This 127-nucleotide RNA from Thorsellia anophelis belongs to the Rfam family "Histidine operon leader". It scores 86 bits against the family's covariance model. The source organism's lineage runs through Bacteria, Pseudomonadati, Pseudomonadota, Thorselliaceae and Thorsellia anophelis. The family's consensus secondary structure is taken from published work. Gene Ontology term of the family: histidine biosynthetic process. Rfam's curators write: At least 6 amino acid operons are known to be regulated by attenuation. In each a leader sequence of 150-200 bp is found upstream of the first gene in the operon. This leader sequence can assume two different secondary structures known as the terminator and the anti-terminator structure. In each case the leader also codes for very short peptide sequence that is rich in the end product amino acid of the operon. A reference for the family is Kolter and Yanofsky (1982), "Attenuation in amino acid biosynthetic operons", Annu Rev Genet.
RNA sequence: GCAUCAUCACCAUCAUACUGAUUAAUCUUUCAGGUGAUGGUGCUUGGAAGAUUAUUAACUCUUCCAAGCGGUGUUGUAAGCCUUAACUCAAGACCCUCGGAAGAUUCAAUUUCGAGGGUUUUUUUAU
Numbered sequence: 001g002c003a004u005c006a007u008c009a010c011c012a013u014c015a016u017a018c019u020g021a022u023u024a025a026u027c028u029u030u031c032a033g034g035u036g037a038u039g040g041u042g043c044u045u046g047g048a049a050g051a052u053u054a055u056u057a058a059c060u061c062u063u064c065c066a067a068g069c070g071g072u073g074u075u076g077u078a079a080g081c082c083u084u085a086a087c088u089c090a091a092g093a094c095c096c097u098c099g100g101a102a103g104a105u106u107c108a109a110u111u112u113c114g115a116g117g118g119u120u121u122u123u124u125u126a127u
Base pairs, nucleotide, nucleotide: 008042009041010040011039012038013037014036018033019032020031021030044066046065047064048063049062050061051060090122091121092120093119094118095117096116097115098114099113100112101111102110